The family of this 62-nucleotide RNA sequence is "RAGATH-18 RNA". Pairs were carried over by alignment from the consensus structure, which is taken from published work. Rfam describes the family as follows. Actinobacteria, Firmicutes, Fusobacteria, Thermotogae (1 example).

RNA sequence: CCUAUGGAGUGUCACAUCAAACGAAAGUAGCCUCGGCAAAAUCGGACACAACGAAGUAGGAA
Number, nucleotide and partner (000 for none) at each position: 001c060002c059003u058004a057005u056006g000007g000008a000009g049010u048011g047012u046013c045014a000015c000016a000017u000018c000019a000020a000021a000022c044023g043024a042025a000026a000027g000028u000029a000030g037031c036032c000033u000034c000035g000036g031037c030038a000039a000040a000041a000042u024043c023044g022045g013046a012047c011048a010049c009050a000051a000052c000053g000054a000055a000056g005057u004058a003059g002060g001061a000062a000